[Rfam]
RNA sequence: GCCGUCUUAGCUCAGCAGGUAGAGCGCACAGCUUUUAACCGUGUGGUCGUGGGUUCGAUUUCCACAGACGGCG
Numbered sequence: 001g002c003c004g005u006c007u008u009a010g011c012u013c014a015g016c017a018g019g020u021a022g023a024g025c026g027c028a029c030a031g032c033u034u035u036u037a038a039c040c041g042u043g044u045g046g047u048c049g050u051g052g053g054u055u056c057g058a059u060u061u062c063c064a065c066a067g068a069c070g071g072c073g
Stems, first nucleotide, its partner, number of pairs: 001072007010025004027043003031039001049065005
The record is a 73-nucleotide RNA sequence from Prunus dulcis, which matches "tRNA" in Rfam. Rfam classes the family as a transfer RNA. The base pairs follow the family's consensus structure, which is taken from published work. Lineage of the source: Eukaryota > Tracheophyta > Magnoliopsida > rosids > Prunus. Rfam's curators write: Transfer RNA (tRNA) molecules are approximately 80 nucleotides in length.